[Rfam]
RNA sequence: AUAAUUUAAUAAUUUUUUUCUUGUAUAAUAGUGGGGAUAUGGCCUACAAGUUUCUACCAAGUUACCGUAAAUGACUUGACUACAAGUGACAUUCUUAGAGAA
Numbered sequence: 001a002u003a004a005u006u007u008a009a010u011a012a013u014u015u016u017u018u019u020c021u022u023g024u025a026u027a028a029u030a031g032u033g034g035g036g037a038u039a040u041g042g043c044c045u046a047c048a049a050g051u052u053u054c055u056a057c058c059a060a061g062u063u064a065c066c067g068u069a070a071a072u073g074a075c076u077u078g079a080c081u082a083c084a085a086g087u088g089a090c091a092u093u094c095u096u097a098g099a100g101a102a
Stems, first nucleotide, its partner, number of pairs: 018088001020086006029049001031047005058078007

Shown here is a 102-nucleotide sequence from Paraliobacillus quinghaiensis, a member of the family "Purine riboswitch aptamer". A search with the family's covariance model found it, with a score of 89 bits. A reference for the family is Mandal et al. (2003), "Riboswitches Control Fundamental Biochemical Pathways in Bacillus subtilis and Other Bacteria", Cell.